Rfam assigns this 100-nucleotide RNA from Oceanirhabdus seepicola to the family "Purine riboswitch aptamer". The base pairs follow the family's consensus structure, which is taken from published work.
RNA sequence: CAAAAUCAAUACGAAGAUACUCAUAUAAGUCUGAUGAUAUGGAUCAGAAGUUUCUACCGAAUACCGAAAAUAUUCGACUAUGGGAAAUCAAAAGUGAAUG
Numbered sequence: 001c002a003a004a005a006u007c008a009a010u011a012c013g014a015a016g017a018u019a020c021u022c023a024u025a026u027a028a029g030u031c032u033g034a035u036g037a038u039a040u041g042g043a044u045c046a047g048a049a050g051u052u053u054c055u056a057c058c059g060a061a062u063a064c065c066g067a068a069a070a071u072a073u074u075c076g077a078c079u080a081u082g083g084g085a086a087a088u089c090a091a092a093a094g095u096g097a098a099u100g
Stems, first nucleotide, its partner, number of pairs: 018086001020084006030048006058076006